About this RNA: 6C RNA: a 74-nucleotide RNA sequence from Corynebacterium lowii. The match comes from Rfam's covariance-model search (48 bits). The base pairs follow the family's consensus structure, which is taken from published work.
RNA sequence: UGCCCCGGUCCGCCCCCCGAGACCGGGUUACUUGACGGCCCGCGCACACCCCCCCGAGGCGCGGGCCGUCCCUU
Number, nucleotide and partner (000 for none) at each position: 001u030002g029003c000004c027005c026006c025007g024008g023009u022010c021011c000012g000013c000014c000015c000016c000017c000018c000019g000020a000021g010022a009023c008024c007025g006026g005027g004028u000029u002030a001031c000032u000033u000034g070035a069036c068037g067038g066039c065040c064041c063042g062043c061044g060045c059046a000047c000048a000049c000050c000051c000052c000053c000054c000055c000056g000057a000058g000059g045060c044061g043062c042063g041064g040065g039066c038067c037068g036069u035070c034071c000072c000073u000074u000